The record is a 121-nucleotide RNA sequence from Lactobacillus xujianguonis, which matches "COG3610-DE RNA" in Rfam. The family's consensus secondary structure is taken from published work.
RNA sequence: GACGAGUCGAUAAAACAACGCGAGAUGCGUAUAUUUUGAGAUAGAGGACAUCUGACUUGAAUGUCAAAGCACGGGAAGUGCCGAUGUUGGGCAACUCUUGAUGUGAACAAGACGUCCCACC
Number, nucleotide and partner (000 for none) at each position: 001g000002a000003c000004g000005a000006g042007u041008c040009g036010a035011u000012a000013a032014a000015a000016c000017a000018a030019c029020g028021c027022g000023a000024g000025a000026u000027g021028c020029g019030u018031a000032u013033a000034u000035u010036u009037u000038g000039a000040g008041a007042u006043a000044g000045a000046g000047g088048a087049c086050a085051u084052c083053u066054g065055a064056c063057u000058u000059g000060a000061a000062u000063g056064u055065c054066a053067a000068a000069g081070c080071a079072c078073g000074g000075g000076a000077a000078g072079u071080g070081c069082c000083g052084a051085u050086g049087u048088u047089g118090g117091g116092c000093a000094a000095c000096u112097c111098u110099u109100g000101a000102u000103g000104u000105g000106a000107a000108c000109a099110a098111g097112a096113c000114g000115u000116c091117c090118c089119a000120c000121c000